[Rfam]
RNA: TPP riboswitch aptamer (THI element)
Organism: Curvibacter sp. AEP1-3
Nucleotides: 101
Base pairs, nucleotide, nucleotide: 006089007088008087009086011051012050013049014048016045017031018030019029020028021027038044039043056081057080058079059078062075063074064073065072
Number, partner (000 for none) and nucleotide at each position: 001000c002000c003000g004000c005000c006089c007088u008087g009086c010000c011051c012050g013049g014048g015000g016045u017031g018030c019029g020028c021027a022000g023000u024000g025000g026000u027021u028020g029019c030018g031017c032000u033000g034000a035000g036000a037000u038044g039043g040000a041000u042000a043039c044038c045016a046000a047000a048014c049013c050012c051011g052000u053000g054000a055000a056081c057080u058079u059078g060000a061000u062075c063074u064073g065072g066000u067000u068000c069000a070000u071000a072065c073064c074063a075062g076000c077000g078059u079058a080057a081056g082000a083000a084000g085000u086009g087008c088007a089006g090000a091000g092000c093000a094000g095000u096000g097000c098000c099000c100000c101000c